[Rfam]
RNA: Small nucleolar RNA SNORD124
Organism: Molossus molossus
RNA sequence: UGAUUCCAAGGAAGGGGUGAUGUUCCAACUGAGACUCAAGAAAAGGAUUCUGAGCCCCAGUGCUUUGAAGGAGACACUUGGUUUCUGACCUUCCUGGAAGUGAA
Numbered sequence: 001u002g003a004u005u006c007c008a009a010g011g012a013a014g015g016g017g018u019g020a021u022g023u024u025c026c027a028a029c030u031g032a033g034a035c036u037c038a039a040g041a042a043a044a045g046g047a048u049u050c051u052g053a054g055c056c057c058c059a060g061u062g063c064u065u066u067g068a069a070g071g072a073g074a075c076a077c078u079u080g081g082u083u084u085c086u087g088a089c090c091u092u093c094c095u096g097g098a099a100g101u102g103a104a
Stems, first nucleotide, its partner, number of pairs: 009095007